[Rfam]
RNA sequence: GGUCAUGCUUUUCCACAGCUUUCUUGAACUUUCUUUGAGUACUAACUCCGUCCUAAGGGAGAAAGAAAAAAAAAACAUUUGCUAGCACACCAUGGAAGCUCAAGAAAGCUGUGGGAAAACAUGAUGG
Numbered sequence: 001g002g003u004c005a006u007g008c009u010u011u012u013c014c015a016c017a018g019c020u021u022u023c024u025u026g027a028a029c030u031u032u033c034u035u036u037g038a039g040u041a042c043u044a045a046c047u048c049c050g051u052c053c054u055a056a057g058g059g060a061g062a063a064a065g066a067a068a069a070a071a072a073a074a075a076c077a078u079u080u081g082c083u084a085g086c087a088c089a090c091c092a093u094g095g096a097a098g099c100u101c102a103a104g105a106a107a108g109c110u111g112u113g114g115g116a117a118a119a120c121a122u123g124a125u126g127g
Stems, first nucleotide, its partner, number of pairs: 003124005013114003017110006024103004029098005
RNA: MIR396 microRNA precursor family